[Rfam]
RNA sequence: UCAGGCCGGUGAUGACUGAUAUCUUGAUUUGCCUACAUUGUCUGAUAAUCUUAAUGAUUGUGAACAAUCUGCUUGAGGCCUGA
Numbered sequence: 001u002c003a004g005g006c007c008g009g010u011g012a013u014g015a016c017u018g019a020u021a022u023c024u025u026g027a028u029u030u031g032c033c034u035a036c037a038u039u040g041u042c043u044g045a046u047a048a049u050c051u052u053a054a055u056g057a058u059u060g061u062g063a064a065c066a067a068u069c070u071g072c073u074u075g076a077g078g079c080c081u082g083a
Base pairs, nucleotide, nucleotide: 001083002082004080005079006078007077
A member of the RNA family "Small nucleolar RNA SNORD34" from Cucurbita maxima, 83 nucleotides long. The match comes from Rfam's covariance-model search (41 bits). The family is grouped with related families in Rfam's "SNORD34 clan". Pairs were carried over by alignment from the consensus structure, which was predicted with PFOLD. snoRNA U34 is found in intron 5 of the ribosomal protein L13a gene in humans. The organism belongs to Cucurbita, within Eukaryota.